[Rfam]
RNA sequence: UUCUUAUCCAGAGAGGUGGAGGGACUGGCCCUUUGAAGCCUCGGCAACAGACUAGGUAAAGUACUGUGCCAAUUCCAGUAGCAAGAAGCUUGAAGAUAAGAA
Numbered sequence: 001u002u003c004u005u006a007u008c009c010a011g012a013g014a015g016g017u018g019g020a021g022g023g024a025c026u027g028g029c030c031c032u033u034u035g036a037a038g039c040c041u042c043g044g045c046a047a048c049a050g051a052c053u054a055g056g057u058a059a060a061g062u063a064c065u066g067u068g069c070c071a072a073u074u075c076c077a078g079u080a081g082c083a084a085g086a087a088g089c090u091u092g093a094a095g096a097u098a099a100g101a102a
Stems, first nucleotide, its partner, number of pairs: 001102008013042005021031003025078004043070004048066002050062001052061002074094001080090003
Dot-bracket structure: ((((((((....(((((...(((.[[[[)))......)))))((((.(((.((......)))..))))))...(]]]].(((.....)))...)))))))))
The record is a 102-nucleotide RNA sequence from Bacillus sp. HNG, which matches "SAM riboswitch aptamer (S box leader)" in Rfam. Taxonomically the source falls in Bacillus (Bacteria, Bacillota, Bacilli, Bacillaceae). The match comes from Rfam's covariance-model search (86 bits). The family's consensus secondary structure is taken from published work. The literature on the family includes a 1998 paper in Mol Microbiol by Grundy and Henkin, "The S box regulon: a new global transcription termination control system for methionine and cysteine biosynthesis genes in gram-positive bacteria".